Annotation:
The record is a 65-nucleotide sequence from Galbula dea, which matches "Selenocysteine insertion sequence 1" in Rfam. Rfam links the family to the GO term selenocysteine incorporation.
RNA sequence: CAGCCCCCAUGAUGGUCUGCCUUCAAACCAGCUCCCUGGUGGGGCAGACCUGAAGUUGUGGCGUG
Numbered sequence: 001c002a003g004c005c006c007c008c009a010u011g012a013u014g015g016u017c018u019g020c021c022u023u024c025a026a027a028c029c030a031g032c033u034c035c036c037u038g039g040u041g042g043g044g045c046a047g048a049c050c051u052g053a054a055g056u057u058g059u060g061g062c063g064u065g
Base pairs, nucleotide, nucleotide: 001065002064005061014050015049016048017047018046019045020044021043022042023041029038030037031036
The source organism's lineage runs through Eukaryota, Sarcopterygii, Neognathae, Galbulidae and Galbula.
Pairs were carried over by alignment from the consensus structure, which is taken from published work.
The family's RNA type in Rfam is cis-regulatory element.
The match comes from Rfam's covariance-model search (41 bits).
About the family: The incorporation of selenocysteine into a protein sequence is directed by an in-frame UGA codon (usually a stop codon) within the coding region of the mRNA. Selenoprotein mRNAs contain a conserved secondary structure in the 3' UTR that is required for the distinction of UGA stop from UGA selenocysteine.